[Rfam]
Shown here is an 87-nucleotide RNA sequence from Youngiibacter fragilis, a member of the family "pan motif". The match comes from Rfam's covariance-model search (47 bits). The family's RNA type in Rfam is cis-regulatory element.

RNA sequence: GCGGCGGUAUCGAAUUGAACUGCACGCAAUUUAGGUUUUUCGGAAUAUUUGGAAUCGGCUUUGAUCCUUUGCGACAGAGACAGAUGA
Numbered sequence: 001g002c003g004g005c006g007g008u009a010u011c012g013a014a015u016u017g018a019a020c021u022g023c024a025c026g027c028a029a030u031u032u033a034g035g036u037u038u039u040u041c042g043g044a045a046u047a048u049u050u051g052g053a054a055u056c057g058g059c060u061u062u063g064a065u066c067c068u069u070u071g072c073g074a075c076a077g078a079g080a081c082a083g084a085u086g087a
Stems, first nucleotide, its partner, number of pairs: 001027003004023005010018002056083001058081001059079005065074002